[Rfam]
RNA sequence: GUCUUAUCAAGAAAGGUGGAGGGACAGGCCCUUUGAAGCCUUAGCAACCGCCUCUCGAAUUUAUUCGGGAGGGUUAGGUGCUAAAUCCUGCCCGUUUUGGUUUUCAACAACCAAAAUUUGGGAAAGAUAAGAA
Dot-bracket structure: .(((((((....(((((...(((.[[[[)))......)))))((((.((((((.................))))..))))))...(]]]]((((........................))))..)))))))).

This 133-nucleotide RNA sequence from Rhodohalobacter barkolensis belongs to the Rfam family "SAM riboswitch aptamer (S box leader)". Taxonomically the source falls in Rhodohalobacter (Bacteria, Balneolota, Balneolia, Balneolales). A search with the family's covariance model found it, with a score of 80 bits.